Shown here is a 98-nucleotide sequence from Vibrio sp. AND4, a member of the family "Translational regulator of tfoXVC". The base pairs follow the family's consensus structure, which was predicted with WAR.

[Rfam]
Nucleotides: 098
Base pairs, nucleotide, nucleotide: 009030011028012027013026014025015024016023017022033041034040045059046058047057048056049055060088061087062086063085064084065083066082067081069079070078071077
Number, partner (000 for none) and nucleotide at each position: 001000u002000u003000u004000c005000c006000a007000g008000a009030g010000a011028u012027g013026g014025c015024a016023u017022g018000g019000a020000a021000a022017c023016a024015u025014g026013u027012c028011a029000a030009u031000c032000g033041g034040c035000a036000g037000c038000a039000a040034g041033c042000g043000a044000a045059g046058g047057u048056g049055u050000c051000u052000u053000u054000u055049a056048c057047a058046c059045c060088c061087g062086u063085g064084g065083u066082a067081c068000a069079g070078u071077c072000a073000c074000c075000c076000c077071g078070g079069c080000c081067g082066u083065a084064c085063c086062a087061c088060g089000u090000u091000u092000u093000u094000u095000u096000a097000u098000u
On this family, see Yamamoto et al., J Bacteriol 2011: "Identification of a chitin-induced small RNA that regulates translation of the tfoX gene, encoding a positive regulator of natural competence in Vibrio cholerae". It is annotated as a small RNA. NCBI's taxonomy places the organism under Bacteria, Pseudomonadati, Pseudomonadota, Gammaproteobacteria, Vibrio. Rfam's curators put it in the seed alignment.